Rfam assigns this 102-nucleotide RNA sequence from Virgibacillus salexigens to the family "PyrR binding site".
It is annotated as a cis-regulatory element.
A search with the family's covariance model found it, with a score of 59 bits.
Pairs were carried over by alignment from the consensus structure, which is taken from published work.
The organism belongs to Virgibacillus, within Bacteria.
RNA sequence: AGGCCCUUUAAUAAUAGUCCCGUGAGGCUAGAAAGGAUACGGAAAUGAUUCGAGUAAAGAAUCCUAAUCCCUUUUUUCCUCAUGGAAAAGAGGGAUAUUUUU
Numbered sequence: 001a002g003g004c005c006c007u008u009u010a011a012u013a014a015u016a017g018u019c020c021c022g023u024g025a026g027g028c029u030a031g032a033a034a035g036g037a038u039a040c041g042g043a044a045a046u047g048a049u050u051c052g053a054g055u056a057a058a059g060a061a062u063c064c065u066a067a068u069c070c071c072u073u074u075u076u077u078c079c080u081c082a083u084g085g086a087a088a089a090g091a092g093g094g095a096u097a098u099u100u101u102u
Base pairs, nucleotide, nucleotide: 003038005036006035007034008033009032015030016029017028018027019026047063048062049061050060051059067096068095069094070093071092072091073090074089075088076087077086078085079084